[Rfam]
RNA sequence: AGCCUGUGAUGGUUUAAGAGUAGUGGGCAGAAUGGAUUUCUGAACAAUUUUAUUUUGAGGCU
Numbered sequence: 001a002g003c004c005u006g007u008g009a010u011g012g013u014u015u016a017a018g019a020g021u022a023g024u025g026g027g028c029a030g031a032a033u034g035g036a037u038u039u040c041u042g043a044a045c046a047a048u049u050u051u052a053u054u055u056u057g058a059g060g061c062u
Base pairs, nucleotide, nucleotide: 001062002061003060004059
Dot-bracket structure: ((((......................................................))))
The record is a 62-nucleotide RNA from Camelus dromedarius, which matches "Small nucleolar RNA SNORD75" in Rfam. Rfam classes the family as a C/D-box small nucleolar RNA. Pairs were carried over by alignment from the consensus structure, which was predicted with RNAalifold. The match comes from Rfam's covariance-model search (66 bits). The literature on the family includes a 2002 paper in Mol Cell Biol by Galardi et al., "Purified box C/D snoRNPs are able to reproduce site-specific 2'-O-methylation of target RNA in vitro". Gene Ontology terms of the family: RNA processing and nucleolus.